[Rfam]
RNA sequence: UGAUUAUUGUAGGGGGACCGGUGUGGCCGGUUGAGAGUGCAUCCAUCAGAUGCUGACCCUUUGAACCUGAACUGGCUCAUACCAGCGUAGGAAACAGAUCGUAGACAGAA
Numbered sequence: 001u002g003a004u005u006a007u008u009g010u011a012g013g014g015g016g017a018c019c020g021g022u023g024u025g026g027c028c029g030g031u032u033g034a035g036a037g038u039g040c041a042u043c044c045a046u047c048a049g050a051u052g053c054u055g056a057c058c059c060u061u062u063g064a065a066c067c068u069g070a071a072c073u074g075g076c077u078c079a080u081a082c083c084a085g086c087g088u089a090g091g092a093a094a095c096a097g098a099u100c101g102u103a104g105a106c107a108g109a110a
Base pairs, nucleotide, nucleotide: 007097008096009095010094011060012059013058014057016054017031018030019029020028021027039053040052041051042050066091067090068089069088072085073084074083075082
Record summary: A member of the RNA family "TPP riboswitch aptamer (THI element)" from Rossellomorea marisflavi, 110 nucleotides long. Pairs were carried over by alignment from the consensus structure, which is taken from published work. Lineage of the source: Bacteria > Bacillati > Bacillota > Bacilli > Rossellomorea. Its family is annotated with thiamine pyrophosphate binding in the Gene Ontology.